[Rfam]
A member of the RNA family "small nucleolar RNA snoR117" from Ziziphus jujuba, 73 nucleotides long. Rfam classes the family as a C/D-box small nucleolar RNA.
RNA sequence: GGCCUGUGAUGCUUAGAUCUUGUCCGUACCAUCUGAUACCUGAUGUAUACAUAAUCUUUACCUUCUGAGGCCU
Number, nucleotide and partner (000 for none) at each position: 001g072002g071003c070004c069005u000006g000007u000008g000009a000010u000011g000012c000013u000014u000015a000016g000017a000018u000019c000020u000021u000022g000023u000024c000025c000026g000027u000028a000029c000030c000031a000032u000033c000034u000035g000036a000037u000038a000039c000040c000041u000042g000043a000044u000045g000046u000047a000048u000049a000050c000051a000052u000053a000054a000055u000056c000057u000058u000059u000060a000061c000062c000063u000064u000065c000066u000067g000068a000069g004070g003071c002072c001073u000
The match comes from Rfam's covariance-model search (62 bits).